RNA sequence: AGGGAGAUGAUGAUAAUUUCCCCAGAUGAUCGACGCUGAACAUACUGUGCUAUUUUUAUCUCUUUUUUUUGAGAUCCAAGCCAGAUUUCUGAUCCUU
Numbered sequence: 001a002g003g004g005a006g007a008u009g010a011u012g013a014u015a016a017u018u019u020c021c022c023c024a025g026a027u028g029a030u031c032g033a034c035g036c037u038g039a040a041c042a043u044a045c046u047g048u049g050c051u052a053u054u055u056u057u058a059u060c061u062c063u064u065u066u067u068u069u070u071g072a073g074a075u076c077c078a079a080g081c082c083a084g085a086u087u088u089c090u091g092a093u094c095c096u097u
Stems, first nucleotide, its partner, number of pairs: 001097005